[Rfam]
RNA sequence: GGGAGCGGCUGGUUCCCGGUGGAGCCCCCGGUCUUCAAAAUCGGUGGGGCGCGGCGCUGAGCCGGGCCCGGUGGGUUCGACUCCCAUCCGCUCCC
Number, nucleotide and partner (000 for none) at each position: 001g095002g094003g093004a092005g091006c090007g089008g088009c000010u000011g026012g025013u024014u023015c022016c021017c000018g000019g000020u000021g016022g015023a014024g013025c012026c011027c000028c044029c043030g042031g041032u040033c000034u000035u000036c000037a000038a000039a000040a032041u031042c030043g029044g028045u000046g000047g069048g068049g067050c066051g000052c000053g000054g000055c000056g000057c000058u000059g000060a000061g000062c000063c000064g000065g000066g050067c049068c048069c047070g000071g000072u086073g085074g084075g083076u000077u000078c000079g000080a000081c000082u000083c075084c074085c073086a072087u000088c008089c007090g006091c005092u004093c003094c002095c001
Record summary: This 95-nucleotide sequence from Ardenticatena maritima belongs to the Rfam family "Selenocysteine transfer RNA". Gene Ontology term of the family: triplet codon-amino acid adaptor activity. Taxonomically the source falls in Ardenticatena (Bacteria, Chloroflexota, Ardenticatenia, Ardenticatenaceae). The match comes from Rfam's covariance-model search (70 bits).